Record summary: This 154-nucleotide RNA sequence from Phtheirospermum japonicum belongs to the Rfam family "MIR828 microRNA precursor family". For this family Rfam cites "MicroRNA gene evolution in Arabidopsis lyrata and Arabidopsis thaliana" (Fahlgren et al., Plant Cell, 2010). The family's consensus secondary structure was predicted with RNAalifold. The family has 16 seed sequences and 204 matches in Rfam 15.1.
RNA sequence: ACAAUAUUUCUUGCUCAAAUGAGUAUUCCAAAAGGCAUGUAGAAAGCAAAUUUACCAAGUAUAAUUUGUUCCAAUUUAAAUUAUUAUUUUGUGGAUAAAUGCUUUUAAAAUAAUGCUGCUUUUCUGAGAUGCUCAUUUGAGCAAGCAAUGUUGA
Numbered sequence: 001a002c003a004a005u006a007u008u009u010c011u012u013g014c015u016c017a018a019a020u021g022a023g024u025a026u027u028c029c030a031a032a033a034g035g036c037a038u039g040u041a042g043a044a045a046g047c048a049a050a051u052u053u054a055c056c057a058a059g060u061a062u063a064a065u066u067u068g069u070u071c072c073a074a075u076u077u078a079a080a081u082u083a084u085u086a087u088u089u090u091g092u093g094g095a096u097a098a099a100u101g102c103u104u105u106u107a108a109a110a111u112a113a114u115g116c117u118g119c120u121u122u123u124c125u126g127a128g129a130u131g132c133u134c135a136u137u138u139g140a141g142c143a144a145g146c147a148a149u150g151u152u153g154a
Base pairs, nucleotide, nucleotide: 004151005150006149007148008147010145011144012143013142014141015140016139017138018137019136020135021134022133023132024131025130026129027128029126030125